Record summary:
mir-1923 microRNA precursor family: an 83-nucleotide RNA sequence from Sipha flava. The base pairs follow the family's consensus structure, which was predicted with RNAalifold. Lineage of the source: Eukaryota > Metazoa > Aphidoidea > Aphididae > Sipha.
RNA sequence: UUGCCAUUUAAAAUGAUGGCUUCGAUAACAAUUUUCAUUAACUUUUUAAUGACUAAUCGCGUGUCGUUGCACAACCGUGGUGG
Numbered sequence: 001u002u003g004c005c006a007u008u009u010a011a012a013a014u015g016a017u018g019g020c021u022u023c024g025a026u027a028a029c030a031a032u033u034u035u036c037a038u039u040a041a042c043u044u045u046u047u048a049a050u051g052a053c054u055a056a057u058c059g060c061g062u063g064u065c066g067u068u069g070c071a072c073a074a075c076c077g078u079g080g081u082g083g
Stems, first nucleotide, its partner, number of pairs: 002082006012068007023059004032055001035052007